[Rfam]
Shown here is an 87-nucleotide RNA sequence from Callipepla squamata, a member of the family "mir-191 microRNA precursor family". For this family Rfam cites "Discovery and profiling of bovine microRNAs from immune-related and embryonic tissues" (Coutinho et al., Physiol Genomics, 2007). Gene Ontology terms of the family: RISC complex and miRNA-mediated post-transcriptional gene silencing. The family's consensus secondary structure was predicted with RNAalifold.
RNA sequence: AGCGCCGGCACGGGCAACGGAAUCCCAAAAGCAGCUGUCCCCGCCGCGCCCAGCUGCCCUGGGAUUUCGUUACCCGAGCCCCCGCCU
Numbered sequence: 001a002g003c004g005c006c007g008g009c010a011c012g013g014g015c016a017a018c019g020g021a022a023u024c025c026c027a028a029a030a031g032c033a034g035c036u037g038u039c040c041c042c043g044c045c046g047c048g049c050c051c052a053g054c055u056g057c058c059c060u061g062g063g064a065u066u067u068c069g070u071u072a073c074c075c076g077a078g079c080c081c082c083c084g085c086c087u
Stems, first nucleotide, its partner, number of pairs: 009078001011076003017070009028060001031057007